[Rfam]
Nucleotides: 121
Base pairs, nucleotide, nucleotide: 002050003049004048005047006046007045008044009043010042011041012040013039014038015037017035018034020033025116026115027114028112029111030110
Number, partner (000 for none) and nucleotide at each position: 001000a002050a003049c004048c005047c006046c007045c008044u009043g010042a011041u012040a013039u014038c015037u016000u017035u018034c019000u020033c021000a022000a023000c024000u025116u026115g027114g028112c029111g030110g031000a032000a033020g034018g035017g036000u037015a038014g039013a040012u041011a042010u043009c044008a045007g046006g047005g048004g049003g050002u051000c052000c053000a054000a055000a056000a057000g058000c059000a060000g061000g062000c063000g064000c065000g066000a067000u068000g069000c070000c071000u072000g073000u074000g075000a076000a077000g078000g079000a080000u081000u082000a083000u084000a085000a086000c087000g088000c089000a090000u091000g092000c093000a094000c095000c096000a097000u098000a099000g100000a101000a102000a103000a104000c105000a106000a107000u108000a109000c110030c111029c112028g113000g114027c115026c116025g117000c118000c119000c120000u121000a